[Rfam]
The family of this 469-nucleotide part of an RNA is "Bacterial small subunit ribosomal RNA". On this family, see Cannone et al., BMC Bioinformatics 2002: "The comparative RNA web (CRW) site: an online database of comparative sequence and structure information for ribosomal, intron, and other RNAs". The family is grouped with related families in Rfam's "SSU clan".

RNA sequence: AAUAAUAUGAGUUUAAUCUUAGCUCUGAAUGAACAGUUACUAUUGGCUUAACACAUGCUAGUUUUGCUAAAAAGCAGCGAAAGGGUGAGUAAUACAGUAAAAAUCUACCCUUAAAAUAUAAGUUAAAUACUUAAACAACUACGUUGGUUUAAGGAUGAUUUUAGAAUUUGGAUUAGGUAGUCGGUAAGAUAAAAGCUUACAGAGCCAAAGAUCCAUAGUUGAUCUGAGAGGAUGAUCAACCACAAUGGUAAUGAAAAAAGAACCAUGGGUAAAUACCCCAGCAGUGAGGAAUAUUGGACAAGGGUCGUAAGAUCGCUCCAGCUAAAUAGUUAAAAAAAAUAGGCUGAAAAUCUUAUUUUUUUAAAAAGAUAGAACAUUAUGAGAUAUUAUCUUUAUUUAUUUAUCCUGACUAAUUUCGUGCCAGCAGUCGCGGUAAUACGAAAAGGAUAGCUGUUAUUCAUCAUGAAUU
Numbered sequence: 001a002a003u004a005a006u007a008u009g010a011g012u013u014u015a016a017u018c019u020u021a022g023c024u025c026u027g028a029a030u031g032a033a034c035a036g037u038u039a040c041u042a043u044u045g046g047c048u049u050a051a052c053a054c055a056u057g058c059u060a061g062u063u064u065u066g067c068u069a070a071a072a073a074g075c076a077g078c079g080a081a082a083g084g085g086u087g088a089g090u091a092a093u094a095c096a097g098u099a100a101a102a103a104u105c106u107a108c109c110c111u112u113a114a115a116a117u118a119u120a121a122g123u124u125a126a127a128u129a130c131u132u133a134a135a136c137a138a139c140u141a142c143g144u145u146g147g148u149u150u151a152a153g154g155a156u157g158a159u160u161u162u163a164g165a166a167u168u169u170g171g172a173u174u175a176g177g178u179a180g181u182c183g184g185u186a187a188g189a190u191a192a193a194a195g196c197u198u199a200c201a202g203a204g205c206c207a208a209a210g211a212u213c214c215a216u217a218g219u220u221g222a223u224c225u226g227a228g229a230g231g232a233u234g235a236u237c238a239a240c241c242a243c244a245a246u247g248g249u250a251a252u253g254a255a256a257a258a259a260g261a262a263c264c265a266u267g268g269g270u271a272a273a274u275a276c277c278c279c280a281g282c283a284g285u286g287a288g289g290a291a292u293a294u295u296g297g298a299c300a301a302g303g304g305u306c307g308u309a310a311g312a313u314c315g316c317u318c319c320a321g322c323u324a325a326a327u328a329g330u331u332a333a334a335a336a337a338a339a340u341a342g343g344c345u346g347a348a349a350a351u352c353u354u355a356u357u358u359u360u361u362u363a364a365a366a367a368g369a370u371a372g373a374a375c376a377u378u379a380u381g382a383g384a385u386a387u388u389a390u391c392u393u394u395a396u397u398u399a400u401u402u403a404u405c406c407u408g409a410c411u412a413a414u415u416u417c418g419u420g421c422c423a424g425c426a427g428u429c430g431c432g433g434u435a436a437u438a439c440g441a442a443a444a445g446g447a448u449a450g451c452u453g454u455u456a457u458u459c460a461u462c463a464u465g466a467a468u469u
Base pairs, nucleotide, nucleotide: 009025010024011023012022013021027459028458029457030456032455033454034453035452036451037450039330040329041328042327043326044325045323046322047288052286053285054284056283057282058281061078062077063076066075067074068073085243086242087241094168099161100160101159104158105157109154110153111152112151113150114149115148117126136146137145138144169215170214171213176206177205178204181203182202184200185199186198187197188196218240219239220238221237222233223232224231225230245266246265247264248263249262268277269276270275294320296319297318298317303314304313305312306311333359334358335357336356342352343351345350363400365394366393367392368391369390373385403448404447405446406445407444414443415442416441417440418439424431425430